[Rfam]
This 92-nucleotide RNA sequence from Gadus morhua belongs to the Rfam family "mir-1388 microRNA precursor family". A search with the family's covariance model found it, with a score of 68 bits.

RNA sequence: UAUUGGGUGGUUCUUUCCAGGACUGUCACACCUGAGCAUGGUACCUUGAGGCUCAAUCUCAGGUUUGUCAGCCCAUGAAAUGCUUACUCGUC
Dot-bracket structure: ....(((.(((..((((..((.(((.(..(((((((..((.............))..)))))))..).))).))..)))).)))..)))...
The literature on the family includes a 2009 paper in BMC Genomics by Soares et al., "Parallel DNA pyrosequencing unveils new zebrafish microRNAs". Its family is annotated with RISC complex and miRNA-mediated post-transcriptional gene silencing in the Gene Ontology. Pairs were carried over by alignment from the consensus structure, which was predicted with RNAalifold.